RNA sequence: GUAAUUAACAAGGGGGUCAUUUUAAAAGCAUGCUCGUCGCGACCCCUGCCAGCCCUUUUCAGGGCUGCAAAUCUACA
Numbered sequence: 001g002u003a004a005u006u007a008a009c010a011a012g013g014g015g016g017u018c019a020u021u022u023u024a025a026a027a028g029c030a031u032g033c034u035c036g037u038c039g040c041g042a043c044c045c046c047u048g049c050c051a052g053c054c055c056u057u058u059u060c061a062g063g064g065c066u067g068c069a070a071a072u073c074u075a076c077a
Stems, first nucleotide, its partner, number of pairs: 013046006021077001023075002026072001028040002050067007
Rfam assigns this 77-nucleotide sequence from Parnassius apollo to the family "Mammalian CPEB3 ribozyme". A search with the family's covariance model found it, with a score of 49 bits. Rfam describes the family as follows. The mammalian CPEB3 ribozyme is a self cleaving RNA located in the second intron of the CPEB3 gene which belongs to a family of genes regulating messenger RNA polyadenylation. Gene Ontology term of the family: RNA nuclease activity.